[Rfam]
RNA: mir-965 microRNA precursor family
RNA sequence: UACCGUAGGGUGGAAAGUUGUACAGCUCAUGGUAUUUUCAACACAUAAGCGUAUAGCUUUUCCCCUUUGGUG
Numbered sequence: 001u002a003c004c005g006u007a008g009g010g011u012g013g014a015a016a017g018u019u020g021u022a023c024a025g026c027u028c029a030u031g032g033u034a035u036u037u038u039c040a041a042c043a044c045a046u047a048a049g050c051g052u053a054u055a056g057c058u059u060u061u062c063c064c065c066u067u068u069g070g071u072g
Stems, first nucleotide, its partner, number of pairs: 003070003007066001010064001012062001014060002018056005026049002029046003
Dot-bracket structure: ..(((.(..(.(.((..(((((...((.(((............))).))..)))))..)).).).).)))..